U1 spliceosomal RNA: a 164-nucleotide RNA sequence from Pan troglodytes. Taxonomically the source falls in Pan (Eukaryota, Euteleostomi, Theria, Simiiformes). The base pairs follow the family's consensus structure, which is taken from published work. U1 is a small nuclear RNA (snRNA) component of the spliceosome (involved in pre-mRNA splicing). Its 5' end forms complementary base pairs with the 5' splice junction, thus defining the 5' donor site of an intron. There are significant differences in sequence and secondary structure between metazoan and yeast U1 snRNAs, the latter being much longer (568 nucleotides as compared to 164 nucleotides in human). Nevertheless, secondary structure predictions suggest that all U1 snRNAs share a 'common core' consisting of helices I, II, the proximal region of III, and IV. This family does not contain the larger yeast sequences. The family is grouped with related families in Rfam's "U1 clan". Rfam classes the family as a spliceosomal small nuclear RNA.
[Rfam]
Nucleotides: 164
Base pairs, nucleotide, nucleotide: 012122013121014120015119016048017047019045020044021043023042024041025040027038049090050089051088052087056083057082058081061078062077064075092117093116094115095113096111097110099109100108138163139162140161142159143158146155147154148153
Number, partner (000 for none) and nucleotide at each position: 001000c002000c003000a004000c005000u006000u007000a008000c009000c010000c011000g012122g013121c014120a015119g016048g017047g018000a019045a020044g021043a022000u023042a024041c025040c026000c027038u028000g029000a030000c031000c032000a033000c034000a035000a036000a037000g038027g039000u040025g041024g042023u043021u044020u045019u046000c047017c048016c049090a050089g051088g052087g053000c054000a055000a056083g057082g058081u059000u060000c061078a062077c063000u064075c065000a066000u067000u068000g069000c070000a071000u072000u073000c074000u075064g076000u077062g078061u079000u080000u081058g082057c083056u084000g085000g086000c087052c088051c089050c090049u091000g092117u093116g094115a095113u096111u097110u098000c099109c100108c101000c102000a103000a104000a105000u106000g107000u108100g109099g110097g111096a112000u113095a114000c115094u116093c117092a118000a119015c120014u121013g122012c123000a124000u125000a126000a127000u128000u129000u130000g131000u132000g133000g134000u135000a136000g137000u138163g139162g140161g141000c142159g143158a144000c145000u146155g147154u148153g149000u150000u151000c152000a153148c154147a155146c156000u157000u158143u159142c160000c161140c162139c163138u164000g